[Rfam]
RNA sequence: UAUGAUGUGAUGAACACCUUAUUUAAGCCAAACAGUUAUCCCUGUCAUAAGAAUAAUUGAUGAUAUAUUCAGCUGACAACAUA
Number, nucleotide and partner (000 for none) at each position: 001u083002a082003u081004g080005a000006u078007g077008u000009g000010a000011u000012g000013a000014a000015c000016a000017c000018c000019u000020u000021a000022u000023u000024u000025a000026a000027g000028c000029c000030a000031a000032a000033c000034a000035g000036u000037u000038a000039u000040c000041c000042c000043u000044g000045u000046c000047a000048u000049a000050a000051g000052a000053a000054u000055a000056a000057u000058u000059g000060a000061u000062g000063a000064u000065a000066u000067a000068u000069u000070c000071a000072g000073c000074u000075g000076a000077c007078a006079a000080c004081a003082u002083a001